[Rfam]
RNA sequence: UACCACCUUGAGGCGGCAGUUGAGUUCGCUCUUGCCCCUCAUACCUCCCUGUUGGACUUGGCCGAGCUUAUGCUCGGCCUUUUUU
Number, nucleotide and partner (000 for none) at each position: 001u000002a000003c000004c000005a000006c000007c000008u000009u041010g040011a039012g038013g037014c000015g000016g000017c000018a000019g000020u000021u000022g000023a000024g000025u000026u000027c000028g000029c000030u000031c000032u000033u000034g000035c000036c000037c013038c012039u011040c010041a009042u000043a000044c000045c000046u000047c000048c000049c000050u000051g000052u000053u000054g000055g000056a000057c000058u000059u000060g079061g078062c077063c076064g075065a074066g073067c072068u000069u000070a000071u000072g067073c066074u065075c064076g063077g062078c061079c060080u000081u000082u000083u000084u000085u000
The family of this 85-nucleotide RNA sequence from Fuscibacter oryzae is "Singlet oxygen resistance RNA X". Gene Ontology term of the family: response to photooxidative stress. The pairing is the family consensus, mapped onto this sequence. SorX (RSs2461)like SorY is a singlet oxygen induced sRNA that counteracts oxidative stress by targeting mRNA for a transporter in Rhodobacter. It also has an impact on resistance against organic hydroperoxides. It targets SD sequence of potA mRNA via an aSD sequence. The aSD sequence and some neighbouring nucleotides are identical to the one of SorY (targets takP mRNA). NCBI's taxonomy places the organism under Bacteria, Pseudomonadati, Rhodobacterales, Paracoccaceae, Fuscibacter. It scores 51 bits against the family's covariance model.